[Rfam]
RNA sequence: ACAAAGGCUCUUUUAAGAGCCACACAUCACAACGAAAGAGCAAAUA
Numbered sequence: 001a002c003a004a005a006g007g008c009u010c011u012u013u014u015a016a017g018a019g020c021c022a023c024a025c026a027u028c029a030c031a032a033c034g035a036a037a038g039a040g041c042a043a044a045u046a
Stems, first nucleotide, its partner, number of pairs: 006021006
The record is a 46-nucleotide RNA sequence from Labrus bergylta, which matches "Histone 3' UTR stem-loop" in Rfam. Its family is annotated with mRNA 3'-end processing by stem-loop binding and cleavage in the Gene Ontology. Pairs were carried over by alignment from the consensus structure, which is taken from published work. It is annotated as a cis-regulatory element. Rfam's curators write: The mRNAs of metazoan histone genes lack a poly-A tail. 3' end processing occurs at a site between a highly conserved stem-loop (modelled by this family) and a purine rich region around 20 nts downstream (the histone downstream element, or HDE). The stem-loop is bound by a 31 kDa stem-loop binding protein (SLBP - also termed the histone hairpin binding protein, or HBP).